This 183-nucleotide sequence from Alteromonas sp. KUL42 belongs to the Rfam family "6S / SsrS RNA".
The family's consensus secondary structure is taken from published work.
RNA sequence: UGUUUCCUGGGAUGUUUGCUAGUUCAUUCAUGUCCCUGGCCGAUGCUUUAAACCUAGGAAGUUGAAACGAUGACUAUUGUGCAAGCUCGACGCGUAUCGAGAAGCCUACGGUUGUUGUGAUGCUUCCGCCCUGAACUUUUCGGUUCACGGGCGAAACAUGGACAGCGGCAUUCUGGGAAGCGC
Dot-bracket structure: .((((((((((((((.(((............((((.(((((...............(((.((...(.((((((((.....((...(((((......)))))..))....)))))))))...)).)))..............)).))).))))............)))))))))))))))))..
The source organism's lineage runs through Bacteria, Pseudomonadati, Pseudomonadota, Alteromonadaceae and Alteromonas. E. coli 6S RNA was the first non coding RNA to be sequenced, but its function was unknown until recently. It consists of 184 nucleotides that fold into an extended hairpin structure with a large single-stranded internal bulge. The 6S RNA specifically associates with RNA polymerase holoenzyme containing the sigma70 specificity factor. This interaction represses expression from a sigma70-dependent promoter during stationary phase. 6S RNA homologs have recently been identified in most bacterial genomes. Many Gram-positive species have two copies of 6S RNA. In Bacillus subtilis, both copies appear to interact with RNA polymerase holoenzyme containing the housekeeping sigma factor and be expressed during different stages of growth. In many proteobacteria, 6S RNA may be processed from a transcript encoding homologs of the E. coli YgfA protein which is a putative 5-formyltetrahydrofolate cycloligase activity. It is annotated as a non-coding RNA gene.